RNA sequence: GUGCACACCACUGCCCCGCUAUGAAGGGGUUUAAAAC
Number, nucleotide and partner (000 for none) at each position: 001g000002u000003g000004c000005a000006c000007a000008c000009c000010a000011c000012u033013g032014c029015c028016c027017c026018g000019c000020u000021a000022u000023g000024a000025a000026g017027g016028g015029g014030u000031u000032u013033a012034a000035a000036a000037c000